[Rfam]
RNA: Small nucleolar RNA SNORA15
RNA sequence: GCAUGGCUGAAUUCUGCACUAGCUUUCCUCAGUAGCUAAUGCAGUCAGACACCAUGCCAGAGUAAAUUCCUUUUUCACUCUGCUUGGUGUGCUUUUCCUAUGGGAAUGGGCAUGCCCUUGGAAGGGGAAUACAU
Number, nucleotide and partner (000 for none) at each position: 001g057002c056003a055004u054005g053006g052007c000008u000009g000010a000011a000012u000013u000014c044015u043016g042017c041018a040019c000020u000021a000022g000023c000024u000025u000026u000027c000028c000029u000030c000031a000032g000033u000034a000035g000036c000037u000038a000039a000040u018041g017042c016043a015044g014045u000046c000047a000048g000049a000050c000051a000052c006053c005054a004055u003056g002057c001058c000059a000060g000061a000062g000063u000064a000065a000066a000067u000068u000069c000070c127071u126072u125073u124074u123075u122076c121077a000078c000079u000080c000081u000082g000083c120084u000085u000086g116087g115088u114089g113090u112091g111092c110093u109094u108095u000096u000097c000098c000099u000100a000101u000102g000103g000104g000105a000106a000107u000108g094109g093110g092111c091112a090113u089114g088115c087116c086117c000118u000119u000120g083121g076122a075123a074124g073125g072126g071127g070128a000129a000130u000131a000132c000133a000134u000